Shown here is a 79-nucleotide sequence from Anolis carolinensis, a member of the family "mir-219 microRNA precursor family". The base pairs follow the family's consensus structure, which was predicted with RNAalifold. Its family is annotated with RISC complex and miRNA-mediated post-transcriptional gene silencing in the Gene Ontology. The sequence is in the family's curated seed alignment.
[Rfam]
RNA sequence: UUUGCUCCUGAUUGUCCAAACGCAAUUCUUGUCCAGAAAACAUGCAAACCAAGAAUUGUGUCUGGACAUCUGUGGCCAA
Numbered sequence: 001u002u003u004g005c006u007c008c009u010g011a012u013u014g015u016c017c018a019a020a021c022g023c024a025a026u027u028c029u030u031g032u033c034c035a036g037a038a039a040a041c042a043u044g045c046a047a048a049c050c051a052a053g054a055a056u057u058g059u060g061u062c063u064g065g066a067c068a069u070c071u072g073u074g075g076c077c078a079a
Stems, first nucleotide, its partner, number of pairs: 002078001004076003010070003014067005021060011